A member of the RNA family "MIR159 microRNA precursor family" from Cicer arietinum, 196 nucleotides long.
RNA sequence: AAUAGAAAAAGGGAGCUCCCUUCAGUCCAAGCAAAGACAAGAGAAAGAUGAAAUUCAGCUCCUGCAUCAUCCACACAUUCACAAUAGCAUAUCAUUAUGUUUUAUUUCUAUUGUGUUUGAAUGAAUGAGUCAGCAGCUAAUUCAAAACUUUUUCCUAUCCAUGAGUGGACUGAAGGAAGCUCUCUUAAACCAUUUC
Numbered sequence: 001a002a003u004a005g006a007a008a009a010a011g012g013g014a015g016c017u018c019c020c021u022u023c024a025g026u027c028c029a030a031g032c033a034a035a036g037a038c039a040a041g042a043g044a045a046a047g048a049u050g051a052a053a054u055u056c057a058g059c060u061c062c063u064g065c066a067u068c069a070u071c072c073a074c075a076c077a078u079u080c081a082c083a084a085u086a087g088c089a090u091a092u093c094a095u096u097a098u099g100u101u102u103u104a105u106u107u108c109u110a111u112u113g114u115g116u117u118u119g120a121a122u123g124a125a126u127g128a129g130u131c132a133g134c135a136g137c138u139a140a141u142u143c144a145a146a147a148c149u150u151u152u153u154c155c156u157a158u159c160c161a162u163g164a165g166u167g168g169a170c171u172g173a174a175g176g177a178a179g180c181u182c183u184c185u186u187a188a189a190c191c192a193u194u195u196c
Base pairs, nucleotide, nucleotide: 013182014181015180016179017178019176020175023172024171025170026169027168028167029166036159059136060135062133063132064131068127069126070125076119
Source information
A reference for the family is Jones-Rhoades and Bartel (2004), "Computational identification of plant microRNAs and their targets, including a stress-induced miRNA", Mol Cell. Rfam 15.1 lists 3,649 matches to the family in 242 species. Pairs were carried over by alignment from the consensus structure, which was predicted with WAR. Taxonomically the source falls in Cicer (Eukaryota, Embryophyta, Euphyllophyta, eudicotyledons).